[Rfam]
This 61-nucleotide RNA sequence from Monodelphis domestica belongs to the Rfam family "mir-199 microRNA precursor family". Rfam's curators put it in the seed alignment. The base pairs follow the family's consensus structure, which was predicted with RNAalifold. Rfam describes the family as follows. This family consists of the microRNA (miRNA) precursor mir-199 which appears to be specific to humans. Animal miRNAs are transcribed as ~70nt precursors and subsequently processed by the Dicer enzyme to give a ~22nt product.
RNA sequence: CCAGUGUUCAGACUACCUGUCCAGGAGAUUGCAAAGGUGUACAGUAGUCUGCACAUUGGUU
Numbered sequence: 001c002c003a004g005u006g007u008u009c010a011g012a013c014u015a016c017c018u019g020u021c022c023a024g025g026a027g028a029u030u031g032c033a034a035a036g037g038u039g040u041a042c043a044g045u046a047g048u049c050u051g052c053a054c055a056u057u058g059g060u061u
Stems, first nucleotide, its partner, number of pairs: 001059007009051007017044004022039002